[Rfam]
RNA sequence: GGGGACCUUCGGGGCCCUUCACAUCACAGACAGCCGGGCCCAUACCCGGCGCAAACCAGAGAGCGGGCCCUUGGGUCCGACGCAAACGGAAGACAGAAA
Numbered sequence: 001g002g003g004g005a006c007c008u009u010c011g012g013g014g015c016c017c018u019u020c021a022c023a024u025c026a027c028a029g030a031c032a033g034c035c036g037g038g039c040c041c042a043u044a045c046c047c048g049g050c051g052c053a054a055a056c057c058a059g060a061g062a063g064c065g066g067g068c069c070c071u072u073g074g075g076u077c078c079g080a081c082g083c084a085a086a087c088g089g090a091a092g093a094c095a096g097a098a099a
Stems, first nucleotide, its partner, number of pairs: 001018004006014003033081001035079008
Dot-bracket structure: ((((.(((...)))))))..............(.((((((((.............................)))))))).)..................